[Rfam]
RNA sequence: UAAGUUUAAAGGCAAACUUAUUGAGAAAUAAGGACGCAAAGCUACGGGUCUAUGUCACUGACAAAGAUAGCCGGGUUACCAAA
Numbered sequence: 001u002a003a004g005u006u007u008a009a010a011g012g013c014a015a016a017c018u019u020a021u022u023g024a025g026a027a028a029u030a031a032g033g034a035c036g037c038a039a040a041g042c043u044a045c046g047g048g049u050c051u052a053u054g055u056c057a058c059u060g061a062c063a064a065a066g067a068u069a070g071c072c073g074g075g076u077u078a079c080c081a082a083a
Stems, first nucleotide, its partner, number of pairs: 012037002017032006040077004045073003048068003054062003